[Rfam]
RNA sequence: UUCUUUCGGGUCUGUAGUUGCGGGGGCAAAAAGGCUCCUUAGUCCAUGGCAGAUGCGGUCAAAAGGAUCCACGUAAGUACGCGCCGCCCUAAUAUAGGCGCGUGCGAGCAUGGCGUAUCCUAGAAGUAAGUCGCACCUCCCGGCCGAUUUUUGCGGCAACGCCGCACUGGGGGAGAGGGCAGAGCGAAAUCAAUCGCAAAACCCCAGUGCGCGAGUGUGGGGGCAAAGACUAGGUCAGCCGAAAGAA
Numbered sequence: 001u002u003c004u005u006u007c008g009g010g011u012c013u014g015u016a017g018u019u020g021c022g023g024g025g026g027c028a029a030a031a032a033g034g035c036u037c038c039u040u041a042g043u044c045c046a047u048g049g050c051a052g053a054u055g056c057g058g059u060c061a062a063a064a065g066g067a068u069c070c071a072c073g074u075a076a077g078u079a080c081g082c083g084c085c086g087c088c089c090u091a092a093u094a095u096a097g098g099c100g101c102g103u104g105c106g107a108g109c110a111u112g113g114c115g116u117a118u119c120c121u122a123g124a125a126g127u128a129a130g131u132c133g134c135a136c137c138u139c140c141c142g143g144c145c146g147a148u149u150u151u152u153g154c155g156g157c158a159a160c161g162c163c164g165c166a167c168u169g170g171g172g173g174a175g176a177g178g179g180c181a182g183a184g185c186g187a188a189a190u191c192a193a194u195c196g197c198a199a200a201a202c203c204c205c206a207g208u209g210c211g212c213g214a215g216u217g218u219g220g221g222g223g224c225a226a227a228g229a230c231u232a233g234g235u236c237a238g239c240c241g242a243a244a245g246a247a
Stems, first nucleotide, its partner, number of pairs: 001247009012238003015232005046218003049059001052119006068113002111225001132211005137173007177204003184197004